[Rfam]
RNA: FMN riboswitch aptamer (RFN element)
Organism: Marinomonas ushuaiensis
RNA sequence: AUCGAACUUCGGGGCGGGGCGAAAUUCCCCACCGGCGGUGAUUUGACAAAAUUCAUUAAUCAAAUGUUAAUGAAUGAAAGCAAACAGCCCGCGAGCGCUUAAUAUUUUACUUUUAGUAAAGCUUUAAGGUCAGCAGAUCUGGUGUGAUUCCAGAGCCGACGGUUACAGUCCGGAUGAUAGAAGAUCGAC
Number, nucleotide and partner (000 for none) at each position: 001a000002u000003c187004g186005a185006a000007c183008u182009u181010c180011g000012g000013g000014g000015c000016g000017g029018g028019g027020c000021g000022a000023a000024a000025u000026u000027c019028c018029c017030c000031a169032c168033c158034g157035g092036c091037g090038g089039u000040g000041a000042u000043u000044u000045g000046a000047c000048a000049a000050a000051a000052u000053u000054c000055a000056u000057u000058a000059a000060u000061c000062a000063a000064a000065u000066g000067u000068u000069a000070a000071u000072g000073a000074a000075u000076g000077a000078a000079a000080g000081c000082a000083a000084a000085c000086a000087g000088c000089c038090c037091g036092c035093g000094a000095g134096c133097g000098c000099u000100u000101a000102a000103u000104a000105u000106u000107u000108u000109a000110c000111u000112u000113u000114u000115a000116g000117u000118a000119a000120a000121g000122c000123u000124u000125u000126a000127a000128g000129g000130u000131c000132a000133g096134c095135a000136g000137a000138u154139c153140u152141g151142g150143u000144g000145u000146g000147a000148u000149u000150c142151c141152a140153g139154a138155g000156c000157c034158g033159a000160c172161g171162g170163u000164u000165a000166c000167a000168g032169u031170c162171c161172g160173g000174a000175u000176g000177a000178u000179a000180g010181a009182a008183g007184a000185u005186c004187g003188a000189c000